[Rfam]
Nucleotides: 232
Base pairs, nucleotide, nucleotide: 005089006088007087008086010084011083012082013081014080015079016078017077020044021043022042023041026038027037028036048055049054058070059069060068061067092230093229095227099220100219101218103216104215108196109195110194111193112192113191114190115189116188117187118186119184121153122152123151124150128145129144130143131142132141133140157181158180159179163176164175165174198208199207200206
Number, partner (000 for none) and nucleotide at each position: 001000g002000a003000g004000u005089u006088a007087c008086u009000u010084u011083u012082a013081c014080u015079g016078g017077c018000a019000a020044g021043g022042u023041u024000a025000a026038g027037c028036a029000c030000u031000u032000c033000a034000g035000g036028u037027g038026c039000g040000c041023a042022g043021c044020c045000g046000u047000a048055g049054c050000g051000a052000a053000a054049g055048c056000g057000a058070g059069u060068c061067u062000g063000a064000a065000c066000a067061g068060g069059g070058c071000g072000c073000c074000a075000g076000a077017g078016u079015c080014a081013g082012u083011a084010g085000u086008a087007g088006u089005a090000g091000a092230c093229g094000c095227g096000a097000a098000a099220c100219c101218g102000u103216g104215c105000g106000a107000u108196c109195u110194a111193c112192c113191c114190a115189u116188g117187g118186g119184c120000a121153g122152g123151u124150u125000g126000a127000a128145g129144c130143u131142g132141u133140g134000g135000u136000a137000a138000c139000a140133c141132a142131c143130a144129g145128u146000g147000g148000a149000g150124g151123a152122c153121c154000g155000a156000a157181c158180c159179c160000g161000u162000u163176g164175a165174c166000g167000u168000u169000g170000a171000a172000a173000a174165g175164u176163c177000u178000u179159g180158g181157g182000a183000u184119g185000a186118c187117c188116u189115g190114u191113g192112g193111g194110u195109a196108g197000g198208g199207g200206u201000g202000a203000a204000a205000g206200g207199c208198c209000a210000a211000u212000c213000a214000a215104g216103c217000u218101c219100g220099g221000a222000a223000a224000u225000a226000g227095c228000u229093c230092g231000u232000a